A member of the RNA family "MIR2118 microRNA precursor family" from Panicum virgatum, 161 nucleotides long.
Its family is annotated with miRNA-mediated post-transcriptional gene silencing and RISC complex in the Gene Ontology.
The base pairs follow the family's consensus structure, which was predicted with RNAalifold.
NCBI's taxonomy places the organism under Eukaryota, Panicoideae, Paniceae, Panicinae, Panicum sect. Hiantes.
RNA sequence: GUCAGGAAGAGGAAGAAACGAGUAUCUAAGAGCAGUGGGCAUGGGAACAUGGAGGAAAGCUUAAAUUUGUCUUCCCCGACUAGGGGUGGAGAUACUUCAGUGUUUUCCCAAUGCCUCCCAUGCCUAUUGUUCUUGGUUACUCCUUCCCCUUCCUUUUGGCU
Number, nucleotide and partner (000 for none) at each position: 001g000002u000003c000004a000005g000006g000007a000008a000009g152010a151011g150012g149013a000014a000015g146016a145017a144018a000019c000020g142021a141022g140023u000024a000025u000026c136027u135028a134029a133030g132031a131032g130033c129034a128035g000036u126037g125038g124039g123040c122041a121042u120043g119044g118045g117046a116047a000048c113049a112050u111051g000052g109053a000054g108055g107056a106057a105058a104059g103060c102061u000062u000063a000064a000065a000066u000067u000068u000069g000070u000071c000072u000073u000074c000075c000076c000077c000078g000079a000080c000081u000082a000083g000084g000085g000086g000087u000088g000089g000090a000091g000092a000093u000094a000095c000096u000097u000098c000099a000100g000101u000102g060103u059104u058105u057106u056107c055108c054109c052110a000111a050112u049113g048114c000115c000116u046117c045118c044119c043120a042121u041122g040123c039124c038125u037126a036127u000128u034129g033130u032131u031132c030133u029134u028135g027136g026137u000138u000139a000140c022141u021142c020143c000144u017145u016146c015147c000148c000149c012150u011151u010152c009153c000154u000155u000156u000157u000158g000159g000160c000161u000